Notes
The record is an 80-nucleotide RNA sequence from Clupea harengus, which matches "mir-499 microRNA precursor family" in Rfam. NCBI's taxonomy places the organism under Eukaryota, Eumetazoa, Osteoglossocephalai, Clupeoidei, Clupea. Pairs were carried over by alignment from the consensus structure, which was predicted with RNAalifold. It scores 87 bits against the family's covariance model. The literature on the family includes a 2008 paper in Genome Res by Murchison et al., "Conservation of small RNA pathways in platypus".

RNA sequence: GAGAGGGAGUUAGUUAAGACUUGCAGUGAUGUUUAGGGAAAUAAACUCAUGAACAUCACUUUAAGUCUGUGCUAUCUCCA
Numbered sequence: 001g002a003g004a005g006g007g008a009g010u011u012a013g014u015u016a017a018g019a020c021u022u023g024c025a026g027u028g029a030u031g032u033u034u035a036g037g038g039a040a041a042u043a044a045a046c047u048c049a050u051g052a053a054c055a056u057c058a059c060u061u062u063a064a065g066u067c068u069g070u071g072c073u074a075u076c077u078c079c080a
Stems, first nucleotide, its partner, number of pairs: 017068007026059010